[Rfam]
RNA sequence: GUGGCUGUAGCUCAGUUGGUUAGAGCGUCGGAUUGUGAUUCCGAAUGUCGGGGGUUCAAAUCCCCUCAGUCACC
Dot-bracket structure: (((((((..((((.........)))).(((((.......))))).....(((((.......)))))))))))).

Shown here is a 74-nucleotide sequence from Rubripirellula amarantea, a member of the family "tRNA". Transfer RNA (tRNA) molecules are approximately 80 nucleotides in length. Gene Ontology term of the family: triplet codon-amino acid adaptor activity. The family's consensus secondary structure is taken from published work.